[Rfam]
RNA sequence: AUCGCUGUAGCGCGGGUUGUAGUUGAUGAAGGCAAAGCCGCGGGCCUGAUCGAUCGUGUGGAAGAGCGGAUUCCAGUCGAACAUCGCGAGCAUGAAGCCCGGCAGGGUGUUGGCGACGAACAUCUUGCCCGACGCGAUCAUGUUGGCGCGCUG
Numbered sequence: 001a002u003c004g005c006u007g008u009a010g011c012g013c014g015g016g017u018u019g020u021a022g023u024u025g026a027u028g029a030a031g032g033c034a035a036a037g038c039c040g041c042g043g044g045c046c047u048g049a050u051c052g053a054u055c056g057u058g059u060g061g062a063a064g065a066g067c068g069g070a071u072u073c074c075a076g077u078c079g080a081a082c083a084u085c086g087c088g089a090g091c092a093u094g095a096a097g098c099c100c101g102g103c104a105g106g107g108u109g110u111u112g113g114c115g116a117c118g119a120a121c122a123u124c125u126u127g128c129c130c131g132a133c134g135c136g137a138u139c140a141u142g143u144u145g146g147c148g149c150g151c152u153g
Base pairs, nucleotide, nucleotide: 002035004033006032008030013025014024015023037057038056040054041052042051043050065152066151067150068149071081072080073079086147087146089144090143091142092141093140094139098134100131101130102129103127104126105125106124107123108122110119111118112117

Ruegeria cis2 sRNA: a 153-nucleotide RNA from Sulfitobacter albidus. A search with the family's covariance model found it, with a score of 110 bits. The family's RNA type in Rfam is small RNA. The base pairs follow the family's consensus structure, which was predicted with RNAfold. The organism belongs to Sulfitobacter, within Bacteria. Its family is annotated with regulation of gene expression in the Gene Ontology.